[Rfam]
RNA sequence: GAUGGUAGGUCCAUCAGUAUUGGUUUUCAAGAGCAGGUACUAAAUCGCCUCUCGGUGCUUGGAUAGUAAUUGAAAGGUAUUGAACAGAAAGAGGAAAAGGCUGCCAUAGAGCAGUCAGA
Numbered sequence: 001g002a003u004g005g006u007a008g009g010u011c012c013a014u015c016a017g018u019a020u021u022g023g024u025u026u027u028c029a030a031g032a033g034c035a036g037g038u039a040c041u042a043a044a045u046c047g048c049c050u051c052u053c054g055g056u057g058c059u060u061g062g063a064u065a066g067u068a069a070u071u072g073a074a075a076g077g078u079a080u081u082g083a084a085c086a087g088a089a090a091g092a093g094g095a096a097a098a099g100g101c102u103g104c105c106a107u108a109g110a111g112c113a114g115u116c117a118g119a
Stems, first nucleotide, its partner, number of pairs: 001015005016041006023034004045119002048094005053087001054081002057078003063071001099116006
Rfam assigns this 119-nucleotide sequence from Darwinula stevensoni to the family "Group II catalytic intron D1-D4-2".
The pairing is the family consensus, mapped onto this sequence.
The source organism's lineage runs through Eukaryota, Bilateria, Ecdysozoa, Darwinulocopina and Darwinula.
Rfam 15.1 lists 1,231 matches to the family in 625 species.
Its family is annotated with Group II intron splicing in the Gene Ontology.
Rfam's curators write: Group II introns are found in rRNA, tRNA and mRNA of organelles in fungi, plants and protists, and also in mRNA in bacteria.
A search with the family's covariance model found it, with a score of 70 bits.